Description: The record is a 137-nucleotide RNA sequence from Ochotona princeps, which matches "Small Cajal body specific RNA 21" in Rfam. NCBI's taxonomy places the organism under Eukaryota, Deuterostomia, Craniata, Gnathostomata, Ochotona. scaRNAs are a specific class of small nuclear RNAs which localise to the Cajal bodies and guide the modification of RNA polymerase II transcribed spliceosomal RNAs U1, U2, U4, U5 and U12. ACA68 (SCARNA21) is a member of the H/ACA class of snoRNAs that guide the sites of modification of uridines to pseudouridines. This snoRNA was identified by computational screening and its expression in mouse experimentally verified by Northern blot and primer extension analysis. ACA68 is proposed to guide the pseudouridylation of residue U19 in U12 snRNA. Rfam classes the family as a small Cajal body RNA.

RNA sequence: UGGCUCAAUUUCCUGGGGGGUGAGCUCAGCCUCCCCCACCCUCCCUCGCCUGAGCCUAAAGUAGAGGAGCCAGGCAGGCACCACCCAGAGAGACCUUUAAGUAAGGGGCCUCCCUUGGCUGCCUUGACCUCACAUCA
Dot-bracket structure: .((((((.......((((((((.(..........).))))))))......)))))).........((.(..(((....((......((.....................))....)).....)))..).))......